[Rfam]
RNA sequence: AUUCUAUAAAGCCAAAUCUGUCGCAAGGCUGGGGCGGAAAGCCACGGGUCCACUUCGUUUUUAGAGCUGUGAUCGUUCUAUAUGAACGCGGGUUCUAAAUGCGACGGAACGCCGGGUUGCCAAC
Number, nucleotide and partner (000 for none) at each position: 001a000002u000003u000004c000005u000006a000007u000008a000009a000010a000011g000012c037013c036014a000015a000016a000017u032018c031019u000020g029021u028022c027023g000024c000025a000026a000027g022028g021029c020030u000031g018032g017033g000034g000035c000036g013037g012038a000039a000040a118041g117042c116043c115044a000045c114046g113047g112048g000049u108050c107051c000052a000053c000054u000055u000056c000057g000058u000059u000060u000061u000062u000063a000064g000065a000066g000067c000068u000069g000070u000071g000072a000073u000074c000075g000076u000077u000078c000079u000080a000081u000082a000083u000084g000085a000086a000087c000088g000089c000090g000091g000092g000093u000094u000095c000096u000097a000098a000099a000100u000101g000102c000103g000104a000105c000106g000107g050108a049109a000110c000111g000112c047113c046114g045115g043116g042117u041118u040119g000120c000121c000122a000123a000124c000
This 124-nucleotide RNA from Olavius algarvensis associated proteobacterium Delta 3 belongs to the Rfam family "c-di-GMP-I riboswitch aptamer".
GEMM was predicted in a large-scale screen for bacterial structured RNA regulatory elements. Genes associated with GEMM are involved in a diverse array of functions, including chemotaxis regulation, signal transduction, secretion and chitin.
Pairs were carried over by alignment from the consensus structure, which is taken from published work.
Lineage of the source: Bacteria > delta/epsilon subdivisions > Deltaproteobacteria.